Shown here is an 87-nucleotide RNA from Dissostichus mawsoni, a member of the family "mir-15 microRNA precursor family". The family's consensus secondary structure was predicted with RNAalifold. About the family: This family represents the related mir-15a and mir-15b sequences. The family is grouped with related families in Rfam's "mir-15 clan". The match comes from Rfam's covariance-model search (62 bits). The literature on the family includes a 2002 paper in Proc Natl Acad Sci U S A by Calin et al., "Frequent deletions and down-regulation of micro- RNA genes miR15 and miR16 at 13q14 in chronic lymphocytic leukemia".
RNA sequence: CCAGGGUGCGCUCUAGCAGCACAUCAUGUUUUGCAGAUAUUUGCUGAAUCACUCCAAAUCAUUUUGUGCUGCCACCGUGAGCCCUGG
Dot-bracket structure: ((((((.......(.((((((((..(((.((((.((...............)).)))).)))..)))))))).).......))))))